RNA sequence: AACAGAGUGGAUAAGAUGCGUUAAGUGUUAAGAGAUGGGAGGUCGCUCUUAAACGAAAGACUUAGUCUGCGGUAUCUUGUCGCUUCCGCUGUA
Numbered sequence: 001a002a003c004a005g006a007g008u009g010g011a012u013a014a015g016a017u018g019c020g021u022u023a024a025g026u027g028u029u030a031a032g033a034g035a036u037g038g039g040a041g042g043u044c045g046c047u048c049u050u051a052a053a054c055g056a057a058a059g060a061c062u063u064a065g066u067c068u069g070c071g072g073u074a075u076c077u078u079g080u081c082g083c084u085u086c087c088g089c090u091g092u093a
Base pairs, nucleotide, nucleotide: 002092003091004090005089010081011080012079013078014077015076016075017074018073019071020070021069025054026053028052029051030050031049032048033047034046038087039086040085041084042083058068059067060066061065